[Rfam]
RNA: pemK RNA
RNA sequence: AUAAUGAUACUCCCUUACCGCCACAGUCCGAGCGUUCAAAGCGUCGCAGGCAAUGGGUAGGGCUGCAUGAGAACCAUGCAGGGGUGAAACUCCCGUGA
Numbered sequence: 001a002u003a004a005u006g007a008u009a010c011u012c013c014c015u016u017a018c019c020g021c022c023a024c025a026g027u028c029c030g031a032g033c034g035u036u037c038a039a040a041g042c043g044u045c046g047c048a049g050g051c052a053a054u055g056g057g058u059a060g061g062g063c064u065g066c067a068u069g070a071g072a073a074c075c076a077u078g079c080a081g082g083g084g085u086g087a088a089a090c091u092c093c094c095g096u097g098a
Base pairs, nucleotide, nucleotide: 012095013062014061015060016059017058018057019056063081064080065079067077068076069075082094083093084092